RNA sequence: AAUGUGAGUUUUGUCGCUUUUCAUUGUAGGUCAUAUGGGACUUUUUUUCUACAUUCAAAAGGCCCUAUAAUCUCUGUGGUGGAUUUACCCACUACAGAGAUUAUAGAGCC
Numbered sequence: 001a002a003u004g005u006g007a008g009u010u011u012u013g014u015c016g017c018u019u020u021u022c023a024u025u026g027u028a029g030g031u032c033a034u035a036u037g038g039g040a041c042u043u044u045u046u047u048u049c050u051a052c053a054u055u056c057a058a059a060a061g062g063c064c065c066u067a068u069a070a071u072c073u074c075u076g077u078g079g080u081g082g083a084u085u086u087a088c089c090c091a092c093u094a095c096a097g098a099g100a101u102u103a104u105a106g107a108g109c110c
Stems, first nucleotide, its partner, number of pairs: 001025004006020001008017002028043005061110003065106001067104008077094006
Dot-bracket structure: ((((.(.((......))..).))))..(((((......))))).................(((.(.((((((((..((((((......))))))..)))))))).).)))
A member of the RNA family "Streptococcus RNA 266" from Streptococcus ovuberis, 110 nucleotides long. Pairs were carried over by alignment from the consensus structure. Rfam classes the family as a small RNA. The literature on the family includes a 2012 paper in RNA by Acebo et al., "Identification of 88 regulatory small RNAs in the TIGR4 strain of the human pathogen Streptococcus pneumoniae".